[Rfam]
RNA: Small nucleolar RNA snR60/Z15/Z230/Z193/J17
Organism: Anopheles gambiae
RNA sequence: UUAUUUUAUAUUGAUGACGCAUAGUUCAGUUGAUCAAACUGUGAUAACACAUGAACAACGCAUUUAAUGCGAUGAAACUGGUCUUUCGCUCCUAUCUGAUAAAAGAA
Number, nucleotide and partner (000 for none) at each position: 001u000002u000003a000004u104005u103006u102007u101008a100009u000010a000011u000012u000013g000014a000015u000016g000017a000018c000019g000020c000021a000022u000023a000024g000025u000026u000027c000028a000029g000030u000031u000032g000033a000034u000035c000036a000037a000038a000039c000040u000041g000042u000043g000044a000045u000046a000047a000048c000049a000050c000051a000052u000053g000054a000055a000056c000057a000058a000059c000060g000061c000062a000063u000064u000065u000066a000067a000068u000069g000070c000071g000072a000073u000074g000075a000076a000077a000078c000079u000080g000081g000082u000083c000084u000085u000086u000087c000088g000089c000090u000091c000092c000093u000094a000095u000096c000097u000098g000099a000100u008101a007102a006103a005104a004105g000106a000107a000